[Rfam]
RNA sequence: CGAGUCGUUCAGACGGUCGCCGGCUCCCUCGGGAGCGGGAGGAAAGUCCGAACUCCGCAAGGCAGUGCGCUGGGUAACCCCCAGUCCGGGUGACCGGAAGGAAAGUGCCACAGAAAACAAACCGCCUCUCCCUCCGGGGAGCGGUAAGGGUGAAAAGGUGCGGUAAGAGCGCACCGCCUGGGCAGCGAUGUCCAGGGCACGGUAAACCCCGCAUGGAGCAAGACCAAAUAGAGAAGCACCCGAGGGCCGCCUGUCCGAGCUUCCGGGUAGGUCGCUUGACCCGUCGGGUAACCGCCGGGCUAGAUGCAUGACCGUCACCCCGCCGCGGGCAACCGCGCCAGGGAACAGAAUUCGGCUUACGAGCGGCUCGGACC
Numbered sequence: 001c002g003a004g005u006c007g008u009u010c011a012g013a014c015g016g017u018c019g020c021c022g023g024c025u026c027c028c029u030c031g032g033g034a035g036c037g038g039g040a041g042g043a044a045a046g047u048c049c050g051a052a053c054u055c056c057g058c059a060a061g062g063c064a065g066u067g068c069g070c071u072g073g074g075u076a077a078c079c080c081c082c083a084g085u086c087c088g089g090g091u092g093a094c095c096g097g098a099a100g101g102a103a104a105g106u107g108c109c110a111c112a113g114a115a116a117a118c119a120a121a122c123c124g125c126c127u128c129u130c131c132c133u134c135c136g137g138g139g140a141g142c143g144g145u146a147a148g149g150g151u152g153a154a155a156a157g158g159u160g161c162g163g164u165a166a167g168a169g170c171g172c173a174c175c176g177c178c179u180g181g182g183c184a185g186c187g188a189u190g191u192c193c194a195g196g197g198c199a200c201g202g203u204a205a206a207c208c209c210c211g212c213a214u215g216g217a218g219c220a221a222g223a224c225c226a227a228a229u230a231g232a233g234a235a236g237c238a239c240c241c242g243a244g245g246g247c248c249g250c251c252u253g254u255c256c257g258a259g260c261u262u263c264c265g266g267g268u269a270g271g272u273c274g275c276u277u278g279a280c281c282c283g284u285c286g287g288g289u290a291a292c293c294g295c296c297g298g299g300c301u302a303g304a305u306g307c308a309u310g311a312c313c314g315u316c317a318c319c320c321c322g323c324c325g326c327g328g329g330c331a332a333c334c335g336c337g338c339c340a341g342g343g344a345a346c347a348g349a350a351u352u353c354g355g356c357u358u359a360c361g362a363g364c365g366g367c368u369c370g371g372a373c374c
Stems, first nucleotide, its partner, number of pairs: 001370010012316007020039002023036005044358003048355005053218004060252004065214005070084005085099001086097004100209002105207002107203003122149002124145003128141005157175006176198001177196008222273004233263005244256004280299004285294003
Dot-bracket structure: ((((((((((.(((((((.((.(((((....))))).))....[[[.[[[[[((((...[[[[.((((((((((.....)))))(((((....)))).)((...(((((............(((((.(((((....))))).)))..)).......((((((.......))))))(((((((((....)))))))).)..)))..)))))))))))))...((((.......(((((......((((.]]]]))))..)))))......))))......((((.(((....))).))))..........)))))))..................................]]]]]]]]..))))))))))....
This 374-nucleotide RNA sequence belongs to the Rfam family "Bacterial RNase P class A". A search with the family's covariance model found it, with a score of 308 bits. Gene Ontology terms of the family: dimeric ribonuclease P complex, ribonuclease P activity and tRNA processing. Rfam describes the family as follows. Ribonuclease P (RNase P) is a ubiquitous endoribonuclease, found in archaea, bacteria and eukarya as well as chloroplasts and mitochondria.